[Rfam]
RNA sequence: CCAGGUGGCUGGAUGGCCGCUUCCCAUGGGAUCCCAUGGGGAGAGGAAAGUCCGGGCUCCACGGAAAUACGGUGCCGGGUAACGCCCGGCGGGGGCAACCCCAGGGAAAGUGCCACAGAAAGCAAACCGCCGGCCCCAUUCCAAGGCUUGUCCCUGGAGUCGGUCGGCAAGGGUGAAAGGGUGCGGUAAGAGCGCACCGCGCGCUCGGCAACGAGGGCGGCACGGUAAACCCCACCGGGAGCAAGACCGAAUAGGGGCGACAGGGUGUCAAAAUCCAGCGCAUUUCCGCGCCGUCGCCCGGGUUGGUCGCGUGAGGCGUCCGGUAACGGACGUCCCAGAUGAAUGGUCAUCCACCGCGGCUUUCCGGGCGACCGGAUAGCAUGGCGGGGACAGAACCCGGCUUACAGGCCGCCUGGCACC
Numbered sequence: 001c002c003a004g005g006u007g008g009c010u011g012g013a014u015g016g017c018c019g020c021u022u023c024c025c026a027u028g029g030g031a032u033c034c035c036a037u038g039g040g041g042a043g044a045g046g047a048a049a050g051u052c053c054g055g056g057c058u059c060c061a062c063g064g065a066a067a068u069a070c071g072g073u074g075c076c077g078g079g080u081a082a083c084g085c086c087c088g089g090c091g092g093g094g095g096c097a098a099c100c101c102c103a104g105g106g107a108a109a110g111u112g113c114c115a116c117a118g119a120a121a122g123c124a125a126a127c128c129g130c131c132g133g134c135c136c137c138a139u140u141c142c143a144a145g146g147c148u149u150g151u152c153c154c155u156g157g158a159g160u161c162g163g164u165c166g167g168c169a170a171g172g173g174u175g176a177a178a179g180g181g182u183g184c185g186g187u188a189a190g191a192g193c194g195c196a197c198c199g200c201g202c203g204c205u206c207g208g209c210a211a212c213g214a215g216g217g218c219g220g221c222a223c224g225g226u227a228a229a230c231c232c233c234a235c236c237g238g239g240a241g242c243a244a245g246a247c248c249g250a251a252u253a254g255g256g257g258c259g260a261c262a263g264g265g266u267g268u269c270a271a272a273a274u275c276c277a278g279c280g281c282a283u284u285u286c287c288g289c290g291c292c293g294u295c296g297c298c299c300g301g302g303u304u305g306g307u308c309g310c311g312u313g314a315g316g317c318g319u320c321c322g323g324u325a326a327c328g329g330a331c332g333u334c335c336c337a338g339a340u341g342a343a344u345g346g347u348c349a350u351c352c353a354c355c356g357c358g359g360c361u362u363u364c365c366g367g368g369c370g371a372c373c374g375g376a377u378a379g380c381a382u383g384g385c386g387g388g389g390a391c392a393g394a395a396c397c398c399g400g401c402u403u404a405c406a407g408g409c410c411g412c413c414u415g416g417c418a419c420c
Stems, first nucleotide, its partner, number of pairs: 001416010011405001012351007020043009048403003052400005057241004066285002070237005075089005090104001091102004105232002110230002112226003127172002129168007180198006199221001200219003204215004245308004255299006278291004315334008
Bacterial RNase P class A: a 420-nucleotide RNA sequence from Skermanella stibiiresistens. From the family's description: Ribonuclease P (RNase P) is a ubiquitous endoribonuclease, found in archaea, bacteria and eukarya as well as chloroplasts and mitochondria. The source organism's lineage runs through Bacteria, Pseudomonadota, Rhodospirillales, Skermanella and Skermanella stibiiresistens. The family's RNA type in Rfam is ribozyme. The family's consensus secondary structure is taken from published work.